The family of this 90-nucleotide RNA from Poriferisphaera corsica is "tRNA". NCBI's taxonomy places the organism under Bacteria, Pseudomonadati, Planctomycetota, Phycisphaerales, Poriferisphaera. By type it is a transfer RNA. Rfam links the family to the GO term triplet codon-amino acid adaptor activity.

[Rfam]
RNA sequence: GGAGAGGUGGCCGAGUGGCUGAAGGCAACGGUUUGCUAAAUCGUCGUACGGGUUCUCCUCGUACCGCGGGUUCGAAUCCCGCCCUCUCCG
Numbered sequence: 001g002g003a004g005a006g007g008u009g010g011c012c013g014a015g016u017g018g019c020u021g022a023a024g025g026c027a028a029c030g031g032u033u034u035g036c037u038a039a040a041u042c043g044u045c046g047u048a049c050g051g052g053u054u055c056u057c058c059u060c061g062u063a064c065c066g067c068g069g070g071u072u073c074g075a076a077u078c079c080c081g082c083c084c085u086c087u088c089c090g
Stems, first nucleotide, its partner, number of pairs: 001089007010026003028044005066082005